[Rfam]
RNA sequence: AAGCGACCAAUUCCAAGCGCCGGAAGAUGGGUAGGAAGCCGGCCGCGUGCGACACGCGCAUGACGGAGUCGUCCGCCCCCAGAGUCGCCCGGGCCUGCCUAAUGCC
Numbered sequence: 001a002a003g004c005g006a007c008c009a010a011u012u013c014c015a016a017g018c019g020c021c022g023g024a025a026g027a028u029g030g031g032u033a034g035g036a037a038g039c040c041g042g043c044c045g046c047g048u049g050c051g052a053c054a055c056g057c058g059c060a061u062g063a064c065g066g067a068g069u070c071g072u073c074c075g076c077c078c079c080c081a082g083a084g085u086c087g088c089c090c091g092g093g094c095c096u097g098c099c100u101a102a103u104g105c106c
Stems, first nucleotide, its partner, number of pairs: 003088005020042004028034001045076003055065002091100003
Shown here is a 106-nucleotide RNA from Mycobacterium bohemicum, a member of the family "Mycobacterium sRNA ncrMT1302". On this family, see Pelly et al., Gene 2012: "A screen for non-coding RNA in Mycobacterium tuberculosis reveals a cAMP-responsive RNA that is expressed during infection". The match comes from Rfam's covariance-model search (87 bits). Taxonomically the source falls in Mycobacterium (Bacteria, Bacillati, Actinomycetota, Mycobacteriales).